[Rfam]
Nucleotides: 099
Base pairs, nucleotide, nucleotide: 011081012080013079014078015077016076017075025071026070027069028068029067086098087097088096089095
Number, partner (000 for none) and nucleotide at each position: 001000a002000c003000u004000u005000g006000c007000g008000g009000g010000g011081c012080a013079a014078a015077c016076c017075c018000u019000a020000u021000g022000a023000g024000c025071g026070c027069c028068a029067c030000g031000u032000c033000c034000u035000g036000c037000u038000c039000c040000u041000g042000c043000g044000a045000u046000u047000a048000c049000u050000c051000g052000u053000c054000g055000c056000a057000a058000a059000a060000u061000g062000c063000u064000u065000u066000u067029g068028u069027g070026g071025c072000a073000g074000c075017g076016g077015g078014u079013u080012u081011g082000u083000g084000a085000c086098c087097g088096a089095c090000g091000u092000c093000g094000u095089g096088u097087c098086g099000a